RNA sequence: GCCAAAUGAUGUCAGAACAGACUUCAUAGCUUCUUUGUGCAAGGAUGACGCACAUCUAUCACCCAAGGCUGAUGGCU
Number, nucleotide and partner (000 for none) at each position: 001g076002c075003c074004a073005a000006a000007u000008g000009a000010u000011g000012u000013c000014a000015g000016a000017a000018c000019a000020g000021a000022c000023u000024u000025c000026a000027u000028a000029g040030c039031u000032u000033c037034u000035u000036u000037g033038u000039g030040c029041a000042a000043g000044g000045a000046u000047g000048a000049c000050g000051c000052a000053c000054a000055u000056c000057u000058a000059u000060c000061a000062c000063c000064c000065a000066a000067g000068g000069c000070u000071g000072a000073u004074g003075g002076c001077u000
RNA: Small nucleolar RNA SNORD83